[Rfam]
RNA sequence: GCGGGGGGUAUGUGACUCUGGUGUGCACCACGGCCUUCAAAGCCGAUCGGGUGGGCGGUUGACCGUUUGCCGGUAGGUUCGAUUCCUACACCCUCUC
Numbered sequence: 001g002c003g004g005g006g007g008g009u010a011u012g013u014g015a016c017u018c019u020g021g022u023g024u025g026c027a028c029c030a031c032g033g034c035c036u037u038c039a040a041a042g043c044c045g046a047u048c049g050g051g052u053g054g055g056c057g058g059u060u061g062a063c064c065g066u067u068u069g070c071c072g073g074u075a076g077g078u079u080c081g082a083u084u085c086c087u088a089c090a091c092c093c094u095c096u097c
Stems, first nucleotide, its partner, number of pairs: 001097001003095005012028003016025001018023001031045004054071005074088004
RNA: Selenocysteine transfer RNA